[Rfam]
RNA sequence: UUCUUAUUUUGAGAGACGGAGGGACUGGCCCUAUGAUGUCCGGCAACCUGAAUAUUUAAGGUGCUAAUUCCAGCAGGUAUUACCUGAGAGAUAAGAA
Numbered sequence: 001u002u003c004u005u006a007u008u009u010u011g012a013g014a015g016a017c018g019g020a021g022g023g024a025c026u027g028g029c030c031c032u033a034u035g036a037u038g039u040c041c042g043g044c045a046a047c048c049u050g051a052a053u054a055u056u057u058a059a060g061g062u063g064c065u066a067a068u069u070c071c072a073g074c075a076g077g078u079a080u081u082a083c084c085u086g087a088g089a090g091a092u093a094a095g096a097a
Base pairs, nucleotide, nucleotide: 001097002096003095004094005093006092007091008090013041015040016039017038021031022030023029025073026072027071028070042065043064044063045062047061048060049058050057051056069089074086075085076084077083
Annotation:
The record is a 97-nucleotide sequence from Clostridium kluyveri, which matches "SAM riboswitch aptamer (S box leader)" in Rfam. Rfam 15.1 lists 9,625 matches to the family in 4,158 species. Rfam's curators put it in the seed alignment. NCBI's taxonomy places the organism under Bacteria, Bacillota, Clostridia, Clostridiaceae, Clostridium kluyveri.